[Rfam]
RNA sequence: ACAACAACAACAUUAAAUAUUCGUAUAAUUCCGGGGAUUGGCCUGGAAGUCUCUACGAGGUCACCGGAAUGACCUGGCUACGAUGAAGAAGAGCUUUCUG
Numbered sequence: 001a002c003a004a005c006a007a008c009a010a011c012a013u014u015a016a017a018u019a020u021u022c023g024u025a026u027a028a029u030u031c032c033g034g035g036g037a038u039u040g041g042c043c044u045g046g047a048a049g050u051c052u053c054u055a056c057g058a059g060g061u062c063a064c065c066g067g068a069a070u071g072a073c074c075u076g077g078c079u080a081c082g083a084u085g086a087a088g089a090a091g092a093g094c095u096u097u098c099u100g
Stems, first nucleotide, its partner, number of pairs: 018086001021083005029048007058075006

Notes: Purine riboswitch aptamer: a 100-nucleotide RNA sequence from Paenibacillus donghaensis. The family is grouped with related families in Rfam's "Purine riboswitches". Taxonomically the source falls in Paenibacillus (Bacteria, Bacillota, Caryophanales, Paenibacillaceae).